Rfam assigns this 76-nucleotide sequence to the family "Small nucleolar RNA SNORD19". The literature on the family includes a 2001 paper in EMBO J by Huttenhofer et al., "RNomics: an experimental approach that identifies 201 candidates for novel, small, non-messenger RNAs in mouse".
RNA sequence: GAGGUAUGAGGAAAAUAUCGGACAGUCUGAUUACCACUGAAGACUGAUAAGAUCCAACUCUGACCUCAACAAAGCC
Numbered sequence: 001g002a003g004g005u006a007u008g009a010g011g012a013a014a015a016u017a018u019c020g021g022a023c024a025g026u027c028u029g030a031u032u033a034c035c036a037c038u039g040a041a042g043a044c045u046g047a048u049a050a051g052a053u054c055c056a057a058c059u060c061u062g063a064c065c066u067c068a069a070c071a072a073a074g075c076c
Stems, first nucleotide, its partner, number of pairs: 001067004
The family is grouped with related families in Rfam's "SNORD19 clan". The base pairs follow the family's consensus structure.